[Rfam]
Description
Y RNA: a 100-nucleotide RNA sequence from Saimiri boliviensis. A search with the family's covariance model found it, with a score of 49 bits.

Nucleotides: 100
Stems, first nucleotide, its partner, number of pairs: 001096004006092003011088001015080003019076001021075001027063002031059002
Number, partner (000 for none) and nucleotide at each position: 001096g002095g003094c004093u005000g006092g007091u008090c009000c010000c011088a012000u013000a014000u015080a016079g017078u018000a019076g020000u021075g022000u023000u024000u025000a026000c027063a028062a029000c030000u031059a032058a033000u034000u035000g036000a037000u038000c039000a040000c041000a042000a043000c044000c045000a046000g047000u048000u049000a050000c051000a052000g053000a054000u055000u056000u057000c058032u059031u060000c061000a062028u063027u064000u065000c066000u067000u068000c069000u070000c071000c072000a073000a074000u075021c076019c077000c078017a079016c080015u081000g082000c083000u084000u085000c086000a087000c088011u089000u090008g091007a092006c093004a094003g095002c096001c097000u098000u099000a100000a